The family of this 55-nucleotide RNA from Labeo rohita is "U7 small nuclear RNA". The literature on the family includes a 1994 paper in Nucleic Acids Res by Spycher et al., "3' end processing of mouse histone pre-mRNA: evidence for additional base-pairing between U7 snRNA and pre-mRNA". It scores 54 bits against the family's covariance model.
[Rfam]
RNA sequence: GAAAAUUUGCUCUUUUAGUAUUUGUCCAGUAGGUUUCCUUUAAAAGGAAGCCCUU
Numbered sequence: 001g002a003a004a005a006u007u008u009g010c011u012c013u014u015u016u017a018g019u020a021u022u023u024g025u026c027c028a029g030u031a032g033g034u035u036u037c038c039u040u041u042a043a044a045a046g047g048a049a050g051c052c053c054u055u
Stems, first nucleotide, its partner, number of pairs: 032052008